[Rfam]
RNA sequence: GGCUCGGAUCUACGCGGUCAAGACGCCCAAAUCUUGUCAGGACCGGAAGGUAGCAGCAACAUGGGAUGCUCUAGAUAGGCGUAGACUCCGGGCCACU
Numbered sequence: 001g002g003c004u005c006g007g008a009u010c011u012a013c014g015c016g017g018u019c020a021a022g023a024c025g026c027c028c029a030a031a032u033c034u035u036g037u038c039a040g041g042a043c044c045g046g047a048a049g050g051u052a053g054c055a056g057c058a059a060c061a062u063g064g065g066a067u068g069c070u071c072u073a074g075a076u077a078g079g080c081g082u083a084g085a086c087u088c089c090g091g092g093c094c095a096c097u
Stems, first nucleotide, its partner, number of pairs: 004091005009085006017076003021072002026065004034059004042051003

This 97-nucleotide sequence from Lyngbya sp. PCC 8106 belongs to the Rfam family "Bacterial small signal recognition particle RNA".
By type it is a non-coding RNA gene.
Pairs were carried over by alignment from the consensus structure, which is taken from published work.
For this family Rfam cites "Temperature-responsive in vitro RNA structurome of Yersinia pseudotuberculosis" (Righetti et al., Proc Natl Acad Sci U S A, 2016).
The source organism's lineage runs through Bacteria, Cyanophyceae, Oscillatoriales, Microcoleaceae and Lyngbya.